RNA sequence: GGAUGGAAUAGAGGUGCAGACAACAAAAGUACUUUCAAGGAGAUUGGUCUCUAUGAUCUGAAAGAAAAGGGUUGCUUGCCGAAGUGCGGAAGAUGCCAAGUCUUCAGUGCUGGUCUUUCAUCAAAUAGGUGUAAGACUGUCACUAAAAGUAACCUUUUAGUGGAGUGCUAUCUUAUCU
Numbered sequence: 001g002g003a004u005g006g007a008a009u010a011g012a013g014g015u016g017c018a019g020a021c022a023a024c025a026a027a028a029g030u031a032c033u034u035u036c037a038a039g040g041a042g043a044u045u046g047g048u049c050u051c052u053a054u055g056a057u058c059u060g061a062a063a064g065a066a067a068a069g070g071g072u073u074g075c076u077u078g079c080c081g082a083a084g085u086g087c088g089g090a091a092g093a094u095g096c097c098a099a100g101u102c103u104u105c106a107g108u109g110c111u112g113g114u115c116u117u118u119c120a121u122c123a124a125a126u127a128g129g130u131g132u133a134a135g136a137c138u139g140u141c142a143c144u145a146a147a148a149g150u151a152a153c154c155u156u157u158u159a160g161u162g163g164a165g166u167g168c169u170a171u172c173u174u175a176u177c178u
Stems, first nucleotide, its partner, number of pairs: 006173001008171004016079004021074004032064006039057001083111005089105006112138006119131004140163007
This 178-nucleotide RNA from Pelosinus sp. UFO1 belongs to the Rfam family "Lysine riboswitch aptamer".
From the family's description: Riboswitches are metabolite binding domains within certain messenger RNAs that serve as precision sensors for their corresponding targets.
The organism belongs to Pelosinus, within Bacteria.
It scores 118 bits against the family's covariance model.
Its family is annotated with lysine biosynthetic process in the Gene Ontology.